The record is a 75-nucleotide RNA from Diaphorina citri, which matches "mir-10 microRNA precursor family" in Rfam. The organism belongs to Diaphorina, within Eukaryota. A search with the family's covariance model found it, with a score of 62 bits. The literature on the family includes a 2001 paper in Science by Lee and Ambros, "An extensive class of small RNAs in Caenorhabditis elegans". The family's consensus secondary structure was predicted with PFOLD.
RNA sequence: CUACAUCUACCCUGUAGAUCCGAAUUUGUUUCAUGUUUAUUAGUCAACAAAUUCGGUUCUAGAGAGGUUUGUGUG
Number, nucleotide and partner (000 for none) at each position: 001c000002u073003a072004c071005a070006u000007c000008u000009a000010c000011c064012c000013u000014g000015u000016a060017g059018a058019u000020c056021c055022g054023a053024a052025u051026u050027u049028g048029u047030u046031u000032c000033a000034u000035g000036u000037u000038u000039a000040u000041u000042a000043g000044u000045c000046a030047a029048c028049a027050a026051a025052u024053u023054c022055g021056g020057u000058u018059c017060u016061a000062g000063a000064g011065a000066g000067g000068u000069u000070u005071g004072u003073g002074u000075g000